[Rfam]
A member of the RNA family "mir-156 microRNA precursor family", 92 nucleotides long.
About the family: This family represents the plant microRNA (miRNA) precursor mir-156.
Gene Ontology terms of the family: miRNA-mediated post-transcriptional gene silencing and RISC complex.

Nucleotides: 092
Base pairs, nucleotide, nucleotide: 001092002091003090004089005088007086008085010082011081012080013079014078015077016076017075018074019073020072021071023069024068025067026066027065
Number, partner (000 for none) and nucleotide at each position: 001092g002091u003090g004089a005088c006000a007086g008085a009000a010082g011081a012080g013079a014078g015077u016076g017075a018074g019073c020072a021071c022000a023069c024068a025067u026066g027065g028000u029000g030000g031000c032000u033000u034000u035000c036000u037000u038000g039000c040000a041000u042000a043000u044000u045000u046000g047000a048000a049000g050000g051000u052000u053000c054000c055000a056000u057000g058000c059000u060000u061000g062000a063000a064000g065027c066026u067025a068024u069023g070000u071021g072020u073019g074018c075017u076016c077015a078014c079013u080012c081011u082010c083000u084000a085008u086007c087000c088005g089004u090003c091002a092001c